[Rfam]
RNA sequence: CUCUUAUCAAGAGCGGCGGAGGGACAGGCCCGAUGAAGCCCGGCAACCGGCGGUUACGCCAAGGUGCCAAGCCCGACCCCGGCGUCAACGGGGAUGGAUGAGAG
Numbered sequence: 001c002u003c004u005u006a007u008c009a010a011g012a013g014c015g016g017c018g019g020a021g022g023g024a025c026a027g028g029c030c031c032g033a034u035g036a037a038g039c040c041c042g043g044c045a046a047c048c049g050g051c052g053g054u055u056a057c058g059c060c061a062a063g064g065u066g067c068c069a070a071g072c073c074c075g076a077c078c079c080c081g082g083c084g085u086c087a088a089c090g091g092g093g094a095u096g097g098a099u100g101a102g103a104g
Stems, first nucleotide, its partner, number of pairs: 001104008013041001015040003021031003027074002042068004047064002049060004072096001077093005